[Rfam]
RNA sequence: CCGUACGCGGGAAGCCCUGCCACGCGGUCCAUGCCCACGGCCGCCCACGACCGCGCCAAGCCAAUGGCGAGACCGACCCACCGGGCUG
Numbered sequence: 001c002c003g004u005a006c007g008c009g010g011g012a013a014g015c016c017c018u019g020c021c022a023c024g025c026g027g028u029c030c031a032u033g034c035c036c037a038c039g040g041c042c043g044c045c046c047a048c049g050a051c052c053g054c055g056c057c058a059a060g061c062c063a064a065u066g067g068c069g070a071g072a073c074c075g076a077c078c079c080a081c082c083g084g085g086c087u088g
Base pairs, nucleotide, nucleotide: 001088003086004085006083007081009079010078011077014061015060023055024054025053026052027051028050029049039074040073042069043068044067045066
RNA: c-di-GMP-II-GAG riboswitch aptamer